The record is a 76-nucleotide sequence from Lepisosteus oculatus, which matches "mir-1788 microRNA precursor family" in Rfam. The source organism's lineage runs through Eukaryota, Craniata, Actinopterygii, Holostei and Lepisosteus. Pairs were carried over by alignment from the consensus structure, which was predicted with RNAalifold.
RNA sequence: UUGUAUUCUGGGCUUGUUUUAAGUUGCCUGCGAUUUGUUUAAAGACUCAGGCAGCUAAAGCAAGUCUGGAAAGCCG
Numbered sequence: 001u002u003g004u005a006u007u008c009u010g011g012g013c014u015u016g017u018u019u020u021a022a023g024u025u026g027c028c029u030g031c032g033a034u035u036u037g038u039u040u041a042a043a044g045a046c047u048c049a050g051g052c053a054g055c056u057a058a059a060g061c062a063a064g065u066c067u068g069g070a071a072a073g074c075c076g
Stems, first nucleotide, its partner, number of pairs: 003074002006071003010067011022056009032046001